[Rfam]
RNA sequence: UAAUCCAAAUUGAAAAGAGAACCAUGUAUAAACAUGAUUCUCUAGUCGUAAAGCCAUUAAGAUGGUGACGUUGUUAAUCAAAAAAAAAUA
Numbered sequence: 001u002a003a004u005c006c007a008a009a010u011u012g013a014a015a016a017g018a019g020a021a022c023c024a025u026g027u028a029u030a031a032a033c034a035u036g037a038u039u040c041u042c043u044a045g046u047c048g049u050a051a052a053g054c055c056a057u058u059a060a061g062a063u064g065g066u067g068a069c070g071u072u073g074u075u076a077a078u079c080a081a082a083a084a085a086a087a088a089u090a
Base pairs, nucleotide, nucleotide: 023036024035025034026033053066054065055064056063057062
Rfam assigns this 90-nucleotide RNA from Vagococcus fessus to the family "RNA anti-toxin A". It is annotated as an antitoxin RNA. Rfam links the family to the GO terms negative regulation of translation and mRNA binding. Taxonomically the source falls in Vagococcus (Bacteria, Bacilli, Lactobacillales, Enterococcaceae).